[Rfam]
RNA: mir-156 microRNA precursor family
Organism: Macleaya cordata
RNA sequence: GUGACAGAAGAGAGUGAGCACACAUGGUCUUUCUUGCAUGAAGUUCCAUGCUUGAAGCUCUGCGUGCUCACUUUCUCUCUGUCAC
Numbered sequence: 001g002u003g004a005c006a007g008a009a010g011a012g013a014g015u016g017a018g019c020a021c022a023c024a025u026g027g028u029c030u031u032u033c034u035u036g037c038a039u040g041a042a043g044u045u046c047c048a049u050g051c052u053u054g055a056a057g058c059u060c061u062g063c064g065u066g067c068u069c070a071c072u073u074u075c076u077c078u079c080u081g082u083c084a085c
Stems, first nucleotide, its partner, number of pairs: 001085008010075012023062002
Dot-bracket structure: ((((((((.((((((((((((.((....................................)).))))))))))))..))))))))